RNA: c-di-AMP riboswitch aptamer (ydaO/yuaA leader)
RNA sequence: GCCAUAGGAGCGCCGAGUUCCCGUCGGGAGACGGGGAGCGGGGGACCCACUCACGGGGCGAAUCGACCGAUGCUGGUCGUAGCGCGACUCUUUCAGCGCGAGCCCGUCAGCUAACCCCGUAGGCCGACGAAAGAGAGUCC
Numbered sequence: 001g002c003c004a005u006a007g008g009a010g011c012g013c014c015g016a017g018u019u020c021c022c023g024u025c026g027g028g029a030g031a032c033g034g035g036g037a038g039c040g041g042g043g044g045a046c047c048c049a050c051u052c053a054c055g056g057g058g059c060g061a062a063u064c065g066a067c068c069g070a071u072g073c074u075g076g077u078c079g080u081a082g083c084g085c086g087a088c089u090c091u092u093u094c095a096g097c098g099c100g101a102g103c104c105c106g107u108c109a110g111c112u113a114a115c116c117c118c119g120u121a122g123g124c125c126g127a128c129g130a131a132a133g134a135g136a137g138u139c140c
Stems, first nucleotide, its partner, number of pairs: 012124003018037008038120006048055001056105003064079004082099004